Proteobacterial sRNA psRNA2: a 207-nucleotide RNA sequence from Burkholderia glumae. The family has 7 seed sequences and 122 matches in Rfam 15.1. It is annotated as a small RNA. The literature on the family includes a 2010 paper in FEMS Microbiol Lett by Gvakharia et al., "Computational prediction and transcriptional analysis of sRNAs in Nitrosomonas europaea". Lineage of the source: Bacteria > Burkholderiales > Burkholderiaceae > Burkholderia > Burkholderia glumae.
RNA sequence: GGGUUACUCCUUGGCGCUUGCGCGCUGUUUUGAUGAAGAUUCGCACCUCUAUCAAAACGGGUAACCCCGCCUCUUGGCAAGGCCUUACUGUCAGAUCAAGUCUGAACUUCUACACGUUAGGCACGCUGGCGCGGCCCGCGGAGAUGCGGAACACCGAUAUCAUGUCCUUCAAGCUAGACGACUGAGAGGACAUCGAUUGCGCAGCCG
Numbered sequence: 001g002g003g004u005u006a007c008u009c010c011u012u013g014g015c016g017c018u019u020g021c022g023c024g025c026u027g028u029u030u031u032g033a034u035g036a037a038g039a040u041u042c043g044c045a046c047c048u049c050u051a052u053c054a055a056a057a058c059g060g061g062u063a064a065c066c067c068c069g070c071c072u073c074u075u076g077g078c079a080a081g082g083c084c085u086u087a088c089u090g091u092c093a094g095a096u097c098a099a100g101u102c103u104g105a106a107c108u109u110c111u112a113c114a115c116g117u118u119a120g121g122c123a124c125g126c127u128g129g130c131g132c133g134g135c136c137c138g139c140g141g142a143g144a145u146g147c148g149g150a151a152c153a154c155c156g157a158u159a160u161c162a163u164g165u166c167c168u169u170c171a172a173g174c175u176a177g178a179c180g181a182c183u184g185a186g187a188g189g190a191c192a193u194c195g196a197u198u199g200c201g202c203a204g205c206c207g
Base pairs, nucleotide, nucleotide: 001067002066003065004064005063006062007061009060010059014025015024016023017022027058028057029056030055031054032053033052034051035050037048038047069205070204075162076161077160081155082154086153090107091106092104093103094102095101096100109150110149111148114145180198181197183192184191